[Rfam]
RNA sequence: UUAUCCAAUAAACUCUUCAGGUUCCACGCACCUACCUGGGCAUGUUGGUGGGCUCGCUGUGUGCUCUGAUGGGUGUGCUGACCAUUGCCUUGCCUGUUCCGGUCAUUGUGUCGAAC
Numbered sequence: 001u002u003a004u005c006c007a008a009u010a011a012a013c014u015c016u017u018c019a020g021g022u023u024c025c026a027c028g029c030a031c032c033u034a035c036c037u038g039g040g041c042a043u044g045u046u047g048g049u050g051g052g053c054u055c056g057c058u059g060u061g062u063g064c065u066c067u068g069a070u071g072g073g074u075g076u077g078c079u080g081a082c083c084a085u086u087g088c089c090u091u092g093c094c095u096g097u098u099c100c101g102g103u104c105a106u107u108g109u110g111u112c113g114a115a116c
Stems, first nucleotide, its partner, number of pairs: 002115001004113001008109004015102002020099002023096001039079004051065003
RNA: Potassium channel RNA editing signal